[Rfam]
RNA sequence: AAACAACAACAGCAUAUCUUUCGUAUAAUCUCAAGAAUCGGCUUGAGAGUCUCUACUCGGUCACCGUAAAUGAUCAGGCUACGAAAAUGGCGGAAAAGCUC
Numbered sequence: 001a002a003a004c005a006a007c008a009a010c011a012g013c014a015u016a017u018c019u020u021u022c023g024u025a026u027a028a029u030c031u032c033a034a035g036a037a038u039c040g041g042c043u044u045g046a047g048a049g050u051c052u053c054u055a056c057u058c059g060g061u062c063a064c065c066g067u068a069a070a071u072g073a074u075c076a077g078g079c080u081a082c083g084a085a086a087a088u089g090g091c092g093g094a095a096a097a098g099c100u101c
Stems, first nucleotide, its partner, number of pairs: 019086007029048007057077001059075005
The family of this 101-nucleotide RNA from Paenibacillus sp. FSL H8-0548 is "Purine riboswitch aptamer". NCBI's taxonomy places the organism under Bacteria, Bacillati, Caryophanales, Paenibacillaceae, Paenibacillus. Gene Ontology term of the family: purine nucleobase biosynthetic process. Pairs were carried over by alignment from the consensus structure, which is taken from published work.